Rfam assigns this 96-nucleotide sequence from Phoenix dactylifera to the family "MIR535 microRNA precursor family". A search with the family's covariance model found it, with a score of 87 bits. Lineage of the source: Eukaryota > Streptophyta > Petrosaviidae > Arecales > Phoenix. The family has 20 seed sequences and 544 matches in Rfam 15.1. For this family Rfam cites "Conservation and divergence of microRNAs and their functions in Euphorbiaceous plants" (Zeng et al., Nucleic Acids Res, 2010).
RNA sequence: GGCUUUGGUUGACAACGAGAGAGAGCACGCUGGUCGGCAAUCAUGCUUGGGGCCAUGAGUGUGUACUGGCGUGCUCCUUCUCGUUGUCACUCAGCU
Number, nucleotide and partner (000 for none) at each position: 001g000002g000003c000004u000005u000006u000007g000008g000009u000010u089011g088012a087013c086014a085015a000016c083017g082018a000019g000020a079021g078022a000023g076024a000025g074026c073027a072028c071029g070030c069031u068032g067033g066034u065035c000036g000037g000038c000039a000040a000041u000042c000043a000044u000045g000046c000047u000048u000049g000050g000051g000052g000053c000054c000055a000056u000057g000058a000059g000060u000061g000062u000063g000064u000065a034066c033067u032068g031069g030070c029071g028072u027073g026074c025075u000076c023077c000078u021079u020080c000081u000082c017083g016084u000085u014086g013087u012088c011089a010090c000091u000092c000093a000094g000095c000096u000